[Rfam]
The record is a 73-nucleotide RNA from Calderihabitans maritimus, which matches "Fluoride riboswitch aptamer (crcB RNA motif)" in Rfam.

RNA sequence: UAACUGGUGGGCGAUGGAGCUCGCCCUGUCCCUUCAGGACUAAACCGCGCUUGCUGAUGGCUCCUACCGCAGG
Numbered sequence: 001u002a003a004c005u006g007g008u009g010g011g012c013g014a015u016g017g018a019g020c021u022c023g024c025c026c027u028g029u030c031c032c033u034u035c036a037g038g039a040c041u042a043a044a045c046c047g048c049g050c051u052u053g054c055u056g057a058u059g060g061c062u063c064c065u066a067c068c069g070c071a072g073g
Base pairs, nucleotide, nucleotide: 010025011024012023013022016064017063018062019061020060021059047054048053
The base pairs follow the family's consensus structure, which is taken from published work. NCBI's taxonomy places the organism under Bacteria, Bacillati, Clostridia, Calderihabitantaceae, Calderihabitans.